Rfam assigns this 149-nucleotide RNA sequence from Lachnospiraceae bacterium MD308 to the family "Molybdenum/Tungsten riboswitch aptamer (Moco RNA motif)". A search with the family's covariance model found it, with a score of 65 bits. A reference for the family is Weinberg et al. (2007), "Identification of 22 candidate structured RNAs in bacteria using the CMfinder comparative genomics pipeline", Nucleic Acids Res.
[Rfam]
RNA sequence: ACACAAAUUGUUCUUUGAGCGAAAGUAUCUAAGUCACAAGGAUAUGAUACUGAGCCGGGAUAAGCUGUUUUAUGUCAGGCGUUGUCCCCGGGGUUUGGAUGGAAACAGACGGGCCUUCCUUUUUGAAAAAAAGAACAUGAAGUGGUCGU
Numbered sequence: 001a002c003a004c005a006a007a008u009u010g011u012u013c014u015u016u017g018a019g020c021g022a023a024a025g026u027a028u029c030u031a032a033g034u035c036a037c038a039a040g041g042a043u044a045u046g047a048u049a050c051u052g053a054g055c056c057g058g059g060a061u062a063a064g065c066u067g068u069u070u071u072a073u074g075u076c077a078g079g080c081g082u083u084g085u086c087c088c089c090g091g092g093g094u095u096u097g098g099a100u101g102g103a104a105a106c107a108g109a110c111g112g113g114c115c116u117u118c119c120u121u122u123u124u125g126a127a128a129a130a131a132a133g134a135a136c137a138u139g140a141a142g143u144g145g146u147c148g149u
Base pairs, nucleotide, nucleotide: 003143004142011135012134013133014132015131016130019055020054024051025050026049027048028047029046033043034042035041057088058087059086060085061084062083063082091116092115093114094113095112096111097110100107101106117126118125